[Rfam]
RNA: Selenocysteine transfer RNA
RNA sequence: GGAAGCGGGAGAAAACUGGUGUUUUCAGCAGUCUUCAAAACUGUAGGGUGGCUUAGGUCAUUGGUAGGUUCGAUUCCUACACGCUUCC
Numbered sequence: 001g002g003a004a005g006c007g008g009g010a011g012a013a014a015a016c017u018g019g020u021g022u023u024u025u026c027a028g029c030a031g032u033c034u035u036c037a038a039a040a041c042u043g044u045a046g047g048g049u050g051g052c053u054u055a056g057g058u059c060a061u062u063g064g065u066a067g068g069u070u071c072g073a074u075u076c077c078u079a080c081a082c083g084c085u086u087c088c
Base pairs, nucleotide, nucleotide: 001088002087003086004085005084006083007082009080011026012025013024014023015022016021028044029043030042031041032040047062048061049060050059051058065079066078067077068076